[Rfam]
RNA sequence: AUAACCUUUAAAGAUAGUCCAGAGAGGCUAGGAAGGUGUCUGCGAGAAAUAACAGGGGUAUGGUCUACCCGUUUUUGUGUCACCUUGCCUCUUUGGGGCAAGGUUUUUGUGU
Numbered sequence: 001a002u003a004a005c006c007u008u009u010a011a012a013g014a015u016a017g018u019c020c021a022g023a024g025a026g027g028c029u030a031g032g033a034a035g036g037u038g039u040c041u042g043c044g045a046g047a048a049a050u051a052a053c054a055g056g057g058g059u060a061u062g063g064u065c066u067a068c069c070c071g072u073u074u075u076u077g078u079g080u081c082a083c084c085u086u087g088c089c090u091c092u093u094u095g096g097g098g099c100a101a102g103g104u105u106u107u108u109g110u111g112u
Base pairs, nucleotide, nucleotide: 004037005036006035007034008033009032015030016029017028018027019026045076046075047074048073049072050071055066079107082104083103084102085101086100087099088098089097090096091095
Dot-bracket structure: ...((((((.....(((((......))))).)))))).......((((((....(..........)....))))))..(..((((((((((...))))))))))..).....
Rfam assigns this 112-nucleotide RNA sequence from Streptococcus hyointestinalis to the family "PyrR binding site". Rfam classes the family as a cis-regulatory element. For this family Rfam cites "Molecular recognition of pyr mRNA by the Bacillus subtilis attenuation regulatory protein PyrR" (Bonner et al., Nucleic Acids Res, 2001). About the family: This family represents the PyrR binding site and terminator structure. This RNA structure is found upstream of a variety of genes involved in pyrimidine biosynthesis and transport. Its family is annotated with pyrimidine nucleobase biosynthetic process and pyrimidine nucleobase transport in the Gene Ontology. The family's consensus secondary structure is taken from published work.